[Rfam]
RNA sequence: CUGACGGAAGCGCAUGGGUAGAGCUCGGGUUUGAGCGCCCAGCGUACCUUCCUGAGCCUAAAGGGGCAAAGGAAGGAGAGCGCGUGAACGUCAG
Numbered sequence: 001c002u003g004a005c006g007g008a009a010g011c012g013c014a015u016g017g018g019u020a021g022a023g024c025u026c027g028g029g030u031u032u033g034a035g036c037g038c039c040c041a042g043c044g045u046a047c048c049u050u051c052c053u054g055a056g057c058c059u060a061a062a063g064g065g066g067c068a069a070a071g072g073a074a075g076g077a078g079a080g081c082g083c084g085u086g087a088a089c090g091u092c093a094g
Stems, first nucleotide, its partner, number of pairs: 001094005008085001010083004015041004023036005047076007056067002
This 94-nucleotide RNA sequence belongs to the Rfam family "L4-Archaeoglobi ribosomal protein leades". The family's consensus secondary structure is taken from published work. On this family, see Eckert and Weinberg, BMC Microbiol 2020: "Discovery of 20 novel ribosomal leader candidates in bacteria and archaea".